[Rfam]
RNA sequence: AUUCUUGCAAGACGCAGAUUAACGCCAUGGGGUAGUAUCAGUUCUUAUCAGUUUAAUAUCUCAUAUAUGGGACAUUGGUCCGCACGCUAUUAACUCAAUUAUUUUGACGGGGGAAGGCUCAUCAAAGUAGCUUGCUACUUGGGCUUUUCUGCGUCGCCUAGGUGUUGCACUACUGCUCAGGCCUGACAUACCCCAC
Numbered sequence: 001a002u003u004c005u006u007g008c009a010a011g012a013c014g015c016a017g018a019u020u021a022a023c024g025c026c027a028u029g030g031g032g033u034a035g036u037a038u039c040a041g042u043u044c045u046u047a048u049c050a051g052u053u054u055a056a057u058a059u060c061u062c063a064u065a066u067a068u069g070g071g072a073c074a075u076u077g078g079u080c081c082g083c084a085c086g087c088u089a090u091u092a093a094c095u096c097a098a099u100u101a102u103u104u105u106g107a108c109g110g111g112g113g114a115a116g117g118c119u120c121a122u123c124a125a126a127g128u129a130g131c132u133u134g135c136u137a138c139u140u141g142g143g144c145u146u147u148u149c150u151g152c153g154u155c156g157c158c159u160a161g162g163u164g165u166u167g168c169a170c171u172a173c174u175g176c177u178c179a180g181g182c183c184u185g186a187c188a189u190a191c192c193c194c195a196c
Base pairs, nucleotide, nucleotide: 003018004017005016046065047064048063050061051060068082069081070080071079073077113148114147115146116145117144118143119142120141127138128137129136130135151189153187154186155185156184158180159179161177162176163175